[Rfam]
SAM riboswitch aptamer (S box leader): a 102-nucleotide RNA from Marinigracilibium pacificum. Rfam's curators write: The SAM riboswitch is found upstream of a number of genes which code for proteins involved in methionine or cysteine biosynthesis in Gram-positive bacteria.
RNA sequence: AUUUUAUACAGAAGAGUGGAGGGAACAGGCCCUGUGAAACUCUAGCAACCUAUUAACAUGGAUAAGGUGCUAAUUCCUGCCCGAUGUUGGGAAAUAUAAAUG
Number, nucleotide and partner (000 for none) at each position: 001a000002u000003u100004u099005u098006a097007u096008a095009c000010a000011g000012a000013a043014g042015a041016g040017u039018g000019g000020a000021g032022g031023g030024a000025a000026c079027a078028g077029g076030c023031c022032c021033u000034g000035u000036g000037a000038a000039a017040c016041u015042c014043u013044a071045g070046c069047a068048a000049c067050c066051u064052a063053u062054u061055a000056a000057c000058a000059u000060g000061g054062a053063u052064a051065a000066g050067g049068u047069g046070c045071u044072a000073a000074u000075u094076c029077c028078u027079g026080c091081c090082c089083g088084a000085u000086g000087u000088u083089g082090g081091g080092a000093a000094a075095u008096a007097u006098a005099a004100a003101u000102g000